Record summary
The record is a 74-nucleotide RNA sequence from Atrichornis clamosus, which matches "mir-1759 microRNA precursor family" in Rfam. It scores 67 bits against the family's covariance model. NCBI's taxonomy places the organism under Eukaryota, Eumetazoa, Teleostomi, Neognathae, Atrichornis.
Nucleotides: 074
Base pairs, nucleotide, nucleotide: 001074002073003072004071005070006069007068008067009066010065011063012062014059015058017056019053021052022051023050024049025048026047027046028045030043031042034039
Number, partner (000 for none) and nucleotide at each position: 001074g002073c003072u004071u005070u006069u007068g008067u009066a010065g011063g012062g013000u014059a015058g016000a017056a018000c019053g020000a021052g022051a023050g024049a025048g026047g027046u028045g029000a030043u031042a032000a033000c034039u035000u036000a037000c038000a039034a040000a041000c042031u043030g044000c045028c046027a047026c048025c049024u050023c051022u052021u053019c054000c055000g056017u057000c058015c059014u060000c061000u062012c063011c064000u065010c066009u067008g068007c069006a070005g071004g072003a073002g074001c